[Rfam]
RNA sequence: UCAGGAAGUGCUGGAUGUCGCCGACCGUCAGAAUAAUGACACGCGUCGUUCCGCCAACGGCCGCCAGGAAGAGACGAUCAUCAACGUUAAUCUGCGCGCAUAAGCAGCUGACGAAUACUUGAGCAUUUUGUUUUUGGAAGUGAUGUACGGAGCACAAGAGCAAUGAAAUUACCGAUUUAUCUGGAUUAUUC
Dot-bracket structure: (((((((......(..((.((....(((.......)))....))))..).(.(((...))).).((((.(..........(.(.(((........)))..).)............).)))).........)))))))...((((........((.........))..))))....................
Notes:
IscS-1 ICR thermometer: a 191-nucleotide sequence from Serratia rubidaea. Imprinting control region from upstream of iscS-1 (cysteine desulfurase). A reference for the family is Righetti et al. (2016), "Temperature-responsive in vitro RNA structurome of Yersinia pseudotuberculosis", Proc Natl Acad Sci U S A. The match comes from Rfam's covariance-model search (85 bits). Taxonomically the source falls in Serratia (Bacteria, Pseudomonadati, Gammaproteobacteria, Enterobacterales).